Notes
This 74-nucleotide RNA from Corynebacterium canis belongs to the Rfam family "tRNA". Pairs were carried over by alignment from the consensus structure, which is taken from published work.
[Rfam]
RNA sequence: GGGCCUAUAGCUCAGUUGGUUAGAGCGCAUCACUGAUAAUGAUGAGGUCGCAAGUUCAAUUCUUGCUAGGCCCA
Numbered sequence: 001g002g003g004c005c006u007a008u009a010g011c012u013c014a015g016u017u018g019g020u021u022a023g024a025g026c027g028c029a030u031c032a033c034u035g036a037u038a039a040u041g042a043u044g045a046g047g048u049c050g051c052a053a054g055u056u057c058a059a060u061u062c063u064u065g066c067u068a069g070g071c072c073c074a
Base pairs, nucleotide, nucleotide: 001073002072003071004070005069006068007067010026011025012024013023028044029043030042031041032040050066051065052064053063054062